[Rfam]
Small nucleolar RNA snR191: a 245-nucleotide RNA from Chaetomium globosum. The family's RNA type in Rfam is H/ACA-box small nucleolar RNA. The base pairs follow the family's consensus structure, which was predicted with WAR. A reference for the family is Badis et al. (2003), "A snoRNA that guides the two most conserved pseudouridine modifications within rRNA confers a growth advantage in yeast", RNA.

RNA sequence: CCCCAGGGCUUUAGUCAGGAUCCUUUCUGCAUUCUUUAUGUAUGUUCAGUGGAAGAAAUCCGUUACGUCCCUGGGAGAGCGAUCUCCACUUCCAACUUCCCUGGUCUGGUCAUCAGAUCGGGGAUUGAUAGGCGCCGUUUUGGGGUUCUAUCACCGGAUACCGGACGUGUUCCAGACGAGUUGAAGGCCGCCACUAUCCAUUCGGAUGGCACAUGGCUGUCUUCUUAGUGAUGAUUCACACAUCC
Numbered sequence: 001c002c003c004c005a006g007g008g009c010u011u012u013a014g015u016c017a018g019g020a021u022c023c024u025u026u027c028u029g030c031a032u033u034c035u036u037u038a039u040g041u042a043u044g045u046u047c048a049g050u051g052g053a054a055g056a057a058a059u060c061c062g063u064u065a066c067g068u069c070c071c072u073g074g075g076a077g078a079g080c081g082a083u084c085u086c087c088a089c090u091u092c093c094a095a096c097u098u099c100c101c102u103g104g105u106c107u108g109g110u111c112a113u114c115a116g117a118u119c120g121g122g123g124a125u126u127g128a129u130a131g132g133c134g135c136c137g138u139u140u141u142g143g144g145g146u147u148c149u150a151u152c153a154c155c156g157g158a159u160a161c162c163g164g165a166c167g168u169g170u171u172c173c174a175g176a177c178g179a180g181u182u183g184a185a186g187g188c189c190g191c192c193a194c195u196a197u198c199c200a201u202u203c204g205g206a207u208g209g210c211a212c213a214u215g216g217c218u219g220u221c222u223u224c225u226u227a228g229u230g231a232u233g234a235u236u237c238a239c240a241c242a243u244c245c
Stems, first nucleotide, its partner, number of pairs: 003074005018061004024055004028042005085165003090160001095125001097124004102120007127152002131147003135143003167239003173233002183224004190217002194209006